Small nucleolar RNA Z266: a 97-nucleotide RNA sequence from Eutrema salsugineum. The organism belongs to Eutrema, within Eukaryota. Rfam classes the family as a C/D-box small nucleolar RNA. Rfam links the family to the GO terms RNA processing and nucleolus. A search with the family's covariance model found it, with a score of 65 bits. On this family, see Chen et al., Nucleic Acids Res 2003: "The high diversity of snoRNAs in plants: identification and comparative study of 120 snoRNA genes from Oryza sativa". The base pairs follow the family's consensus structure, which was predicted with PFOLD.
RNA sequence: AACGGCGAGGAUGAUGAUUUAAUUAGAUGUGCGAAUGGAGAGUUUCUCCAUUUUGAGCUUAAAAACUUAAUUUGGCAAUUAAUCUGACUUCGCCGUC
Numbered sequence: 001a002a003c004g005g006c007g008a009g010g011a012u013g014a015u016g017a018u019u020u021a022a023u024u025a026g027a028u029g030u031g032c033g034a035a036u037g038g039a040g041a042g043u044u045u046c047u048c049c050a051u052u053u054u055g056a057g058c059u060u061a062a063a064a065a066c067u068u069a070a071u072u073u074g075g076c077a078a079u080u081a082a083u084c085u086g087a088c089u090u091c092g093c094c095g096u097c
Stems, first nucleotide, its partner, number of pairs: 002096009